mir-544 microRNA precursor family: a 95-nucleotide RNA sequence from Camelus dromedarius. Its family is annotated with RISC complex and miRNA-mediated post-transcriptional gene silencing in the Gene Ontology. The base pairs follow the family's consensus structure, which was predicted with RNAalifold. NCBI's taxonomy places the organism under Eukaryota, Metazoa, Deuterostomia, Eutheria, Camelus. A reference for the family is Chiang et al. (2010), "Mammalian microRNAs: experimental evaluation of novel and previously annotated genes", Genes Dev.

[Rfam]
RNA sequence: AUCACCUGGGGAUUUGUUAAACUGCAGAUCCUGAUUCAGCAGGUCUGGGGUAGCCUGAGAUUCUGCAUUUCUAACAAGACCCCAGGUGACUCCCA
Numbered sequence: 001a002u003c004a005c006c007u008g009g010g011g012a013u014u015u016g017u018u019a020a021a022c023u024g025c026a027g028a029u030c031c032u033g034a035u036u037c038a039g040c041a042g043g044u045c046u047g048g049g050g051u052a053g054c055c056u057g058a059g060a061u062u063c064u065g066c067a068u069u070u071c072u073a074a075c076a077a078g079a080c081c082c083c084a085g086g087u088g089a090c091u092c093c094c095a
Base pairs, nucleotide, nucleotide: 003088004087005086009082010081011080014077015076016075017074018073019072020070021069024066025065026064027063028062031059032058